[Rfam]
RNA sequence: GUUGGCCUUACAGCAAAUUCUCACAAAUUUUUACUGAUUAAAAAAAACCCCUUGUCAACUG
Numbered sequence: 001g002u003u004g005g006c007c008u009u010a011c012a013g014c015a016a017a018u019u020c021u022c023a024c025a026a027a028u029u030u031u032u033a034c035u036g037a038u039u040a041a042a043a044a045a046a047a048c049c050c051c052u053u054g055u056c057a058a059c060u061g
Stems, first nucleotide, its partner, number of pairs: 001059006
RNA: Class I RNA from Dictyostelium
Organism: Dictyostelium discoideum